[Rfam]
RNA sequence: GAAAGGUGAGUGGUAUUUACUUCUUCAAAAGAGAAGCUAUCCACCUCAGAGCUCAUCUUUCAUCACACUCACUAUGUUGAUUUAUUAUGAAAAAAUAAACUACAGAAAAGGAAAAGUCUCUGAGCGGUUAAACUGAAAGUCACCUAAUUCCUUGGGUAGAAAUGCCAACAAGGAAAUUGACAGGACCCCAAGUCCUUCAGUUUUGACUAAGAAAGUCCUAGUACCUGGGCACGGGUUUAGAGAGUCCGCAAGAUUCUAUAGAGGCAAGUAGUAGUUGAGUAAGUUUGACCGAAACGUGUGAUUGUCGUAAACAAUCGGUGAUGACUUGAUACUGAUGGCAACAUUAGUGGAUACGAGAGGAAACCUUAGUCGGGUAUAAUCUCUACAAAAGACAGGUCACUUAAACGAGUAAUCUCAUCGU
Numbered sequence: 001g002a003a004a005g006g007u008g009a010g011u012g013g014u015a016u017u018u019a020c021u022u023c024u025u026c027a028a029a030a031g032a033g034a035a036g037c038u039a040u041c042c043a044c045c046u047c048a049g050a051g052c053u054c055a056u057c058u059u060u061c062a063u064c065a066c067a068c069u070c071a072c073u074a075u076g077u078u079g080a081u082u083u084a085u086u087a088u089g090a091a092a093a094a095a096u097a098a099a100c101u102a103c104a105g106a107a108a109a110g111g112a113a114a115a116g117u118c119u120c121u122g123a124g125c126g127g128u129u130a131a132a133c134u135g136a137a138a139g140u141c142a143c144c145u146a147a148u149u150c151c152u153u154g155g156g157u158a159g160a161a162a163u164g165c166c167a168a169c170a171a172g173g174a175a176a177u178u179g180a181c182a183g184g185a186c187c188c189c190a191a192g193u194c195c196u197u198c199a200g201u202u203u204u205g206a207c208u209a210a211g212a213a214a215g216u217c218c219u220a221g222u223a224c225c226u227g228g229g230c231a232c233g234g235g236u237u238u239a240g241a242g243a244g245u246c247c248g249c250a251a252g253a254u255u256c257u258a259u260a261g262a263g264g265c266a267a268g269u270a271g272u273a274g275u276u277g278a279g280u281a282a283g284u285u286u287g288a289c290c291g292a293a294a295c296g297u298g299u300g301a302u303u304g305u306c307g308u309a310a311a312c313a314a315u316c317g318g319u320g321a322u323g324a325c326u327u328g329a330u331a332c333u334g335a336u337g338g339c340a341a342c343a344u345u346a347g348u349g350g351a352u353a354c355g356a357g358a359g360g361a362a363a364c365c366u367u368a369g370u371c372g373g374g375u376a377u378a379a380u381c382u383c384u385a386c387a388a389a390a391g392a393c394a395g396g397u398c399a400c401u402u403a404a405a406c407g408a409g410u411a412a413u414c415u416c417a418u419c420g421u
Base pairs, nucleotide, nucleotide: 001061002060003059004058005057006056007055008054009053010044011043012042013041017039020036021035022034023033024032025031045124046123047122048121049120050119051118110189111188125291126290127289128288129287130286131285132284133283134282140321141320142319143318144317149174150173151172152171153170154169155166156165157164175202176201177200178199179198183195184194185193186192205276206275207274208273209272218261219260220259223236224235225234226233241257242256243255245253246252300316301315302314303313304312305311323398324397325396327394328393330349331348332347333346334345335344336343337342350414351413352412355386356384357383358382359381360380406420407419408418
The record is a 421-nucleotide sequence, which matches "Giant, ornate, lake- and Lactobacillales-derived (GOLLD) RNA" in Rfam. It is annotated as a non-coding RNA gene. The base pairs follow the family's consensus structure, which is taken from published work. It is one of the family's seed sequences.